[Rfam]
RNA sequence: AAAGGUCCAAUAGGGUCGACAUGAGACCACGUGUAUAUCACAAUUUCAUCGUAGUGUUUUUCCAUUUGAGCUUUCGACUUUUAAAAGGUCGUGCGAAAAAGUGAUUCGAUAUGUGUUCUCAGGUCGCCCCUGUAGGACCUUU
Dot-bracket structure: ......((..((((..(((...((((.(((((((..........................................................................))))))).))))...)))..))))..))......
Numbered sequence: 001a002a003a004g005g006u007c008c009a010a011u012a013g014g015g016u017c018g019a020c021a022u023g024a025g026a027c028c029a030c031g032u033g034u035a036u037a038u039c040a041c042a043a044u045u046u047c048a049u050c051g052u053a054g055u056g057u058u059u060u061u062c063c064a065u066u067u068g069a070g071c072u073u074u075c076g077a078c079u080u081u082u083a084a085a086a087g088g089u090c091g092u093g094c095g096a097a098a099a100a101g102u103g104a105u106u107c108g109a110u111a112u113g114u115g116u117u118c119u120c121a122g123g124u125c126g127c128c129c130c131u132g133u134a135g136g137a138c139c140u141u142u
Stems, first nucleotide, its partner, number of pairs: 007136002011132004017126003023120004028115007

MIR398 microRNA precursor family: a 142-nucleotide RNA from Olea europaea. Its family is annotated with miRNA-mediated post-transcriptional gene silencing and RISC complex in the Gene Ontology. Rfam 15.1 lists 627 matches to the family in 211 species. A search with the family's covariance model found it, with a score of 57 bits.